[Rfam]
RNA: HNH endonuclease-associated RNA and ORF (HEARO) RNA
Organism: Chroococcidiopsis thermalis
RNA sequence: GUCAGCAACCCCCGACUUGAAGUCGGGGGCUUCAGGCAGAUAACCUGAAGCCCUAGUUGACCAGACUAUCGUUUGAGGCAAGUGUUAAAGACCUACUUUAGGAUGCUUGCUAGUCCUGAACCCUAGAACCAGACGAUUAAACAGACUUAUUGGGUUAAGUCAGUGUCGUUUGGAUAGUUACCGACCUCAAACAAUGUCGAAGCAAACAUUAC
Numbered sequence: 001g002u003c004a005g006c007a008a009c010c011c012c013c014g015a016c017u018u019g020a021a022g023u024c025g026g027g028g029g030c031u032u033c034a035g036g037c038a039g040a041u042a043a044c045c046u047g048a049a050g051c052c053c054u055a056g057u058u059g060a061c062c063a064g065a066c067u068a069u070c071g072u073u074u075g076a077g078g079c080a081a082g083u084g085u086u087a088a089a090g091a092c093c094u095a096c097u098u099u100a101g102g103a104u105g106c107u108u109g110c111u112a113g114u115c116c117u118g119a120a121c122c123c124u125a126g127a128a129c130c131a132g133a134c135g136a137u138u139a140a141a142c143a144g145a146c147u148u149a150u151u152g153g154g155u156u157a158a159g160u161c162a163g164u165g166u167c168g169u170u171u172g173g174a175u176a177g178u179u180a181c182c183g184a185c186c187u188c189a190a191a192c193a194a195u196g197u198c199g200a201a202g203c204a205a206a207c208a209u210u211a212c
Stems, first nucleotide, its partner, number of pairs: 001061006008054001010029002012026002015023002030050007064198003071192006084185003093126002097120008107206002109203003129173009141164002144161006